[Rfam]
RNA sequence: GGCUGGUUCGAUGGCAGUGGUAUUUAUAAUUCAUCACAGUCAGUUACAGAUUUCUUUGUUCUUUCUCCACACUCACUGUUGCACUUGACUGGUCUUUC
Numbered sequence: 001g002g003c004u005g006g007u008u009c010g011a012u013g014g015c016a017g018u019g020g021u022a023u024u025u026a027u028a029a030u031u032c033a034u035c036a037c038a039g040u041c042a043g044u045u046a047c048a049g050a051u052u053u054c055u056u057u058g059u060u061c062u063u064u065c066u067c068c069a070c071a072c073u074c075a076c077u078g079u080u081g082c083a084c085u086u087g088a089c090u091g092g093u094c095u096u097u098c
Base pairs, nucleotide, nucleotide: 001094002093003092004091005090006089007088008087010086011085014082015081016077017076018075019074020073028060029059030058033055